[Rfam]
RNA sequence: AUCCUCUCAGCAAUGGGCAAAGAAAUACCUUGUAGGUGGUGCUGCUCUUAUAUUUGUUAGGGGAAGAGCACGUAGCAGUCCUUUGUUCAUCCUAGACUGAUGCCUAGUUUGGUGGCCAGUGCUAUUUUAUAGCCAGGACAUAUAG
Dot-bracket structure: .((((((.......((...(((.(.((((........)))).)...)))...))....))))))...................(((((..........(.(...(((..((.((.....)).))..))).).)..))))).....